[Rfam]
RNA sequence: ACUCGCUUGGUGGAACGGCAAACACGGCAGACUCAAAAUCUGUUUCUAAUGGAAUAUCGGUUCGAAUCCGAUAGCGAGUA
Numbered sequence: 001a002c003u004c005g006c007u008u009g010g011u012g013g014a015a016c017g018g019c020a021a022a023c024a025c026g027g028c029a030g031a032c033u034c035a036a037a038a039u040c041u042g043u044u045u046c047u048a049a050u051g052g053a054a055u056a057u058c059g060g061u062u063c064g065a066a067u068c069c070g071a072u073a074g075c076g077a078g079u080a
Stems, first nucleotide, its partner, number of pairs: 001079007010025003027043005056072005
Shown here is an 80-nucleotide RNA, a member of the family "tRNA". Rfam classes the family as a transfer RNA. Gene Ontology term of the family: triplet codon-amino acid adaptor activity.